[Rfam]
RNA: Guanidine-I riboswitch aptamer
Organism: Nitrosomonas oligotropha
RNA sequence: GCAAUGGGAAACUAGGGUUCCGGCCGAUUCAGUCAACGGCGUCAGGUCCAAGAGUUUCCGGUCUCGUAAUAGCGAGGCUCCACGGAGGGAUAAAAGCCCGGGAGAU
Numbered sequence: 001g002c003a004a005u006g007g008g009a010a011a012c013u014a015g016g017g018u019u020c021c022g023g024c025c026g027a028u029u030c031a032g033u034c035a036a037c038g039g040c041g042u043c044a045g046g047u048c049c050a051a052g053a054g055u056u057u058c059c060g061g062u063c064u065c066g067u068a069a070u071a072g073c074g075a076g077g078c079u080c081c082a083c084g085g086a087g088g089g090a091u092a093a094a095a096g097c098c099c100g101g102g103a104g105a106u
Stems, first nucleotide, its partner, number of pairs: 007059006015049002020046002022043001023040004028035001060079008081101001083104001087099003